Notes
The family of this 112-nucleotide RNA sequence from Microvirga mediterraneensis is "TPP riboswitch aptamer (THI element)". Its family is annotated with thiamine pyrophosphate binding in the Gene Ontology. Pairs were carried over by alignment from the consensus structure, which is taken from published work. The family has 115 seed sequences and 16,130 matches in Rfam 15.1. It scores 58 bits against the family's covariance model. NCBI's taxonomy places the organism under Bacteria, Pseudomonadota, Hyphomicrobiales, Methylobacteriaceae, Microvirga.

[Rfam]
RNA sequence: CACAUCCGACAGGGGUGCUCCGUAUCGCCGGGGCUGAGAUGACGGCGCGAAGCCGUUGGACCCUCAAGCUGAUCUGGGUAAUGCCAGCGGAGCGAGGUGACGAUGUUUUCCG
Numbered sequence: 001c002a003c004a005u006c007c008g009a010c011a012g013g014g015g016u017g018c019u020c021c022g023u024a025u026c027g028c029c030g031g032g033g034c035u036g037a038g039a040u041g042a043c044g045g046c047g048c049g050a051a052g053c054c055g056u057u058g059g060a061c062c063c064u065c066a067a068g069c070u071g072a073u074c075u076g077g078g079u080a081a082u083g084c085c086a087g088c089g090g091a092g093c094g095a096g097g098u099g100a101c102g103a104u105g106u107u108u109u110c111c112g
Stems, first nucleotide, its partner, number of pairs: 007099002010096001011064004016058001017034005041057005068093003074087004